This 416-nucleotide part of an RNA from Thecamonas trahens belongs to the Rfam family "Eukaryotic large subunit ribosomal RNA". The family's consensus secondary structure is taken from published work.

RNA sequence: AGCGUUAUUGGGCAAGUAGAGCAACUCAGUACGAGAGGAACCGUUGUUCGACAGAAUUGGUCUUGCGGUUGGUCGAGGGCCACGCCGCGCAGCUACCCUGUCUAGGAUUACGGCUGAACGCCUCUAAGCCGGAAACCAUGCUUAGGCAAGCAGUAACGGGAAACUGGAUGCAAGUGGCGAGCGGCGCAGAAGCGCAGAGUAGGGCAGUGCAAGCUGUCGGCAACGCGGGGGGAGACUCGGUCCUUGCCUUUUUCACGAAGCUGUGGGCAAGGGCUGGUCUUUGAGAUGUGGAGUACGCGGUAGUCACUUGCGUGGAUCCUCUGUAGAUGACUUUGUUCGCAUGGGGAGUUGUAGGAAGCUGAGUGGCCGAGUUUGCCACGAACUUUUGAGACCUUGCCCUAUCUUUUUAGAGUAUG
Numbered sequence: 001a002g003c004g005u006u007a008u009u010g011g012g013c014a015a016g017u018a019g020a021g022c023a024a025c026u027c028a029g030u031a032c033g034a035g036a037g038g039a040a041c042c043g044u045u046g047u048u049c050g051a052c053a054g055a056a057u058u059g060g061u062c063u064u065g066c067g068g069u070u071g072g073u074c075g076a077g078g079g080c081c082a083c084g085c086c087g088c089g090c091a092g093c094u095a096c097c098c099u100g101u102c103u104a105g106g107a108u109u110a111c112g113g114c115u116g117a118a119c120g121c122c123u124c125u126a127a128g129c130c131g132g133a134a135a136c137c138a139u140g141c142u143u144a145g146g147c148a149a150g151c152a153g154u155a156a157c158g159g160g161a162a163a164c165u166g167g168a169u170g171c172a173a174g175u176g177g178c179g180a181g182c183g184g185c186g187c188a189g190a191a192g193c194g195c196a197g198a199g200u201a202g203g204g205c206a207g208u209g210c211a212a213g214c215u216g217u218c219g220g221c222a223a224c225g226c227g228g229g230g231g232g233a234g235a236c237u238c239g240g241u242c243c244u245u246g247c248c249u250u251u252u253u254c255a256c257g258a259a260g261c262u263g264u265g266g267g268c269a270a271g272g273g274c275u276g277g278u279c280u281u282u283g284a285g286a287u288g289u290g291g292a293g294u295a296c297g298c299g300g301u302a303g304u305c306a307c308u309u310g311c312g313u314g315g316a317u318c319c320u321c322u323g324u325a326g327a328u329g330a331c332u333u334u335g336u337u338c339g340c341a342u343g344g345g346g347a348g349u350u351g352u353a354g355g356a357a358g359c360u361g362a363g364u365g366g367c368c369g370a371g372u373u374u375g376c377c378a379c380g381a382a383c384u385u386u387u388g389a390g391a392c393c394u395u396g397c398c399c400u401a402u403c404u405u406u407u408u409a410g411a412g413u414a415u416g
Base pairs, nucleotide, nucleotide: 004157005156006155007154008153009152010151014143015142016141017140019049020048021047022046023045024044025043050102051101052100053099054098058095059094060093064089065088066087067086068085070082071081072080073079074078105137106136111131112130113129114128115127163313164312317411318410319335323331341405343403344399345398346397348392349391355386356385357384358383360382363379364378365377366376367375